[Rfam]
RNA sequence: CUUCAAGAGAUGUGGCGCCAAGCUCCGACUGGCCACGCACCAACCCCAUGUUCACGGGUGGUUCGGAUGAGGAAGCGGCCUGUACCGGACCCGAGACAACCGGCCAGGCAAGAGCAACUC
Numbered sequence: 001c002u003u004c005a006a007g008a009g010a011u012g013u014g015g016c017g018c019c020a021a022g023c024u025c026c027g028a029c030u031g032g033c034c035a036c037g038c039a040c041c042a043a044c045c046c047c048a049u050g051u052u053c054a055c056g057g058g059u060g061g062u063u064c065g066g067a068u069g070a071g072g073a074a075g076c077g078g079c080c081u082g083u084a085c086c087g088g089a090c091c092c093g094a095g096a097c098a099a100c101c102g103g104c105c106a107g108g109c110a111a112g113a114g115c116a117a118c119u120c
Base pairs, nucleotide, nucleotide: 001075002074003073004072009038011037012036013035014034015033016032021030022029039062040061041060044058045057046056078109079108080107081106082105085103086102087101

Shown here is a 120-nucleotide RNA from Arthrobacter sp. SW1, a member of the family "SAM (S-adenosyl methionine) riboswitch aptamer". The source organism's lineage runs through Bacteria, Bacillati, Actinomycetota, Micrococcales and Arthrobacter.